A member of the RNA family "Small nucleolar RNA snoR136" from Eragrostis curvula, 137 nucleotides long. Taxonomically the source falls in Eragrostis (Eukaryota, Viridiplantae, Streptophytina, Eragrostidinae). Gene Ontology terms of the family: nucleolus and RNA processing.
RNA sequence: ACGGCUUCUCUUGAUGUUACUGUGCUGUGGACCUCUUUGGUUCUUGGGCAAUGGCAAGAUUGGAAGCUAAAUAGAUUCGUUCCUCUCGCUAUCCGGCGCGGAUUACUGAUGCGAUUGGACGUCGAGGAACUACACUA
Numbered sequence: 001a002c003g004g005c006u007u008c009u010c011u012u013g014a015u016g017u018u019a020c021u022g023u024g025c026u027g028u029g030g031a032c033c034u035c036u037u038u039g040g041u042u043c044u045u046g047g048g049c050a051a052u053g054g055c056a057a058g059a060u061u062g063g064a065a066g067c068u069a070a071a072u073a074g075a076u077u078c079g080u081u082c083c084u085c086u087c088g089c090u091a092u093c094c095g096g097c098g099c100g101g102a103u104u105a106c107u108g109a110u111g112c113g114a115u116u117g118g119a120c121g122u123c124g125a126g127g128a129a130c131u132a133c134a135c136u137a
Base pairs, nucleotide, nucleotide: 003068004067005066008063009062013061014060017057023056024055025054026053027052028051030049033048034047035046079130080129081128082127083126084125085124087121088120092119093118094117095116096115